[Rfam]
RNA sequence: AUAGUUACGGAGUAACUGCCGAAGACAGUAGGUGCCGGAUGGCAUAAGGAUUAAAACGCCUACCGAGGAAGACACAAUUCAUUACUUGAAUGUUGACCUCUCUGCCUUUGUGCGGAGAGGUUUUUUCUGGCAGCU
Numbered sequence: 001a002u003a004g005u006u007a008c009g010g011a012g013u014a015a016c017u018g019c020c021g022a023a024g025a026c027a028g029u030a031g032g033u034g035c036c037g038g039a040u041g042g043c044a045u046a047a048g049g050a051u052u053a054a055a056a057c058g059c060c061u062a063c064c065g066a067g068g069a070a071g072a073c074a075c076a077a078u079u080c081a082u083u084a085c086u087u088g089a090a091u092g093u094u095g096a097c098c099u100c101u102c103u104g105c106c107u108u109u110g111u112g113c114g115g116a117g118a119g120g121u122u123u124u125u126u127c128u129g130g131c132a133g134c135u
Stems, first nucleotide, its partner, number of pairs: 028063006034043003096121010

The family of this 135-nucleotide RNA from Sellimonas intestinalis is "Ribosomal protein L10 leader". Gene Ontology term of the family: regulation of gene expression. The family's RNA type in Rfam is cis-regulatory leader. The organism belongs to Sellimonas, within Bacteria. From the family's description: This family is a putative r-protein leader autoregulatory structure found in B. subtilis and other low-GC Gram-positive bacteria. It is located in the 5' untranslated regions of mRNAs encoding ribosomal proteins L10 and L12 (rplJ-rplL). A Rho-independent transcription terminator structure that is probably involved in regulation is included at the 3' end.